RNA: c-di-GMP-I riboswitch aptamer
Organism: Roseateles depolymerans
RNA sequence: GACUGAUCAGGGCAAAACCGGCGUGAGCCGGCGACGCAAAGCCUCCGGUCUCGGUUGAGAUAGCGGGGUUGCCGGA
Numbered sequence: 001g002a003c004u005g006a007u008c009a010g011g012g013c014a015a016a017a018c019c020g021g022c023g024u025g026a027g028c029c030g031g032c033g034a035c036g037c038a039a040a041g042c043c044u045c046c047g048g049u050c051u052c053g054g055u056u057g058a059g060a061u062a063g064c065g066g067g068g069u070u071g072c073c074g075g076a
Stems, first nucleotide, its partner, number of pairs: 012037002018031005040070004045066003048061005